This 98-nucleotide sequence from Ammochloa palaestina belongs to the Rfam family "Plastid-rps12 3UTR RNA". Pairs were carried over by alignment from the consensus structure, which was predicted with LocARNA. The family's RNA type in Rfam is cis-regulatory element. Rfam 15.1 lists 1,710 matches to the family in 1,426 species. Plastid rpl20 is a non-coding RNA (ncRNA) recognised in plastids. The literature on the family includes a 2023 paper in Plant Commun by Richter et al., "Retrograde signaling in plants: A critical review focusing on the GUN pathway and beyond".
[Rfam]
RNA sequence: GGUUUCCUUUGGUGCAAAUCCAAUUAUCUAAAUUGGAAAUAAAAAGCAAUUCCCCCAUUGGUAGCAAAUCGUUAUCCAUUAAGCGGAGGAAAUAGUAA
Numbered sequence: 001g002g003u004u005u006c007c008u009u010u011g012g013u014g015c016a017a018a019u020c021c022a023a024u025u026a027u028c029u030a031a032a033u034u035g036g037a038a039a040u041a042a043a044a045a046g047c048a049a050u051u052c053c054c055c056c057a058u059u060g061g062u063a064g065c066a067a068a069u070c071g072u073u074a075u076c077c078a079u080u081a082a083g084c085g086g087a088g089g090a091a092a093u094a095g096u097a098a
Base pairs, nucleotide, nucleotide: 009023010022011021012020052088055086056085057079058078060076061075062074063073064072065071